[Rfam]
Retron msr RNA: a 71-nucleotide RNA from Vibrio cholerae. The organism belongs to Vibrio cholerae, within Bacteria. About the family: Retron elements are found in a wide range of mainly Gram-negative bacteria. The retron encodes a reverse transcriptase that is responsible for the production of a small satellite DNA called msDNA (multi-copy single-stranded DNA). msDNA has both DNA (encoded by the retron msd gene) and RNA (encoded by the msr gene) components. The sequence is in the family's curated seed alignment.
RNA sequence: GCUCUUUAGCGAAUGGACUACACAUAUUAGUCUAGUCGGGCGUUUAGCCAGACUGAAAUUUAUUGAACGAC
Dot-bracket structure: ..(((((((........................((((.(((.....))).))))........))))).)).

By type it is a non-coding RNA gene.